[Rfam]
RNA sequence: UUAUCAGAAUCUCCAGGGGUACUUAAAAUUUGAAAAAGUCCCCCAGGUGUGAUUCUGAUUUGC
Numbered sequence: 001u002u003a004u005c006a007g008a009a010u011c012u013c014c015a016g017g018g019g020u021a022c023u024u025a026a027a028a029u030u031u032g033a034a035a036a037a038g039u040c041c042c043c044c045a046g047g048u049g050u051g052a053u054u055c056u057g058a059u060u061u062g063c
Stems, first nucleotide, its partner, number of pairs: 003059009013047002016044004021039004
RNA: mir-361 microRNA precursor family
Organism: Canis lupus